TPP riboswitch aptamer (THI element): a 104-nucleotide sequence from Pseudovibrio exalbescens.

RNA sequence: UGCGUAUCCGAGGGGUGCUUCCGUGUGGAAGCUGAGAUGGCAGUGCCGAACCCUUAGAACCUGAUCCGGGUAAUGCCGGCGAAGGGACAGGAACCCCAAGCCUA
Number, nucleotide and partner (000 for none) at each position: 001u000002g000003c000004g000005u000006a000007u091008c090009c000010g088011a054012g053013g052014g051015g000016u048017g032018c031019u030020u029021c028022c000023g000024u000025g000026u000027g000028g021029a020030a019031g018032c017033u000034g000035a000036g000037a000038u000039g047040g046041c045042a000043g000044u000045g041046c040047c039048g016049a000050a000051c014052c013053c012054u011055u000056a000057g000058a000059a000060c085061c084062u083063g000064a000065u000066c079067c078068g077069g076070g000071u000072a000073a000074u000075g000076c069077c068078g067079g066080c000081g000082a000083a062084g061085g060086g000087a000088c010089a000090g008091g007092a000093a000094c000095c000096c000097c000098a000099a000100g000101c000102c000103u000104a000